[Rfam]
RNA sequence: UGGAGAGAAAGCAUGGCUUCCGCGGGUAUCACUCGAUACGCGUGAGGAAAGUCCCCCCACCGCCAAGCGGGUGGCCAGGCACAAGCCUGGGGCAGGAGACUGCCGGCUCUGGAACAGAAACGACACGUCUUCCCGUAACCAAUGAGGCUUGCGAACGACUCCGAAAGGAUCAGGAGCUAACCAGCCGAGGAUAGAUCAGGAAGGAUCGAUGGAACGGCGAAACCCCACUGGUGCAAGUCGGCGCCAAAAAGGUAGCUUGGCAGUGGUGCCGACGCUUAGCUAAAUGCCAAAAACAGAAGGGGGCUUACUCUUCUCACCA
Dot-bracket structure: (((.(((((((..[[[[...((((................))))....(((.(((((((((..[.[[..((((((((((......)))))(((((....)))))((...(.(.............((.(((((.(...........((...................................))...........).)))))...)).........).)..)))))))))))...(((((((((...........]].]....)))))))))............]]]].........)))))))).)).))))).)))
This 319-nucleotide RNA from Salinarchaeum sp. IM2453 belongs to the Rfam family "Archaeal RNase P". About the family: Ribonuclease P (RNase P) is a ubiquitous endoribonuclease, found in archaea, bacteria and eukarya as well as chloroplasts and mitochondria. Its best characterised activity is the generation of mature 5'-ends of tRNAs by cleaving the 5'-leader elements of precursor-tRNAs. It scores 186 bits against the family's covariance model. Taxonomically the source falls in Salinarchaeum (Archaea, Methanobacteriati, Methanobacteriota, Natronoarchaeaceae). Rfam classes the family as a ribozyme.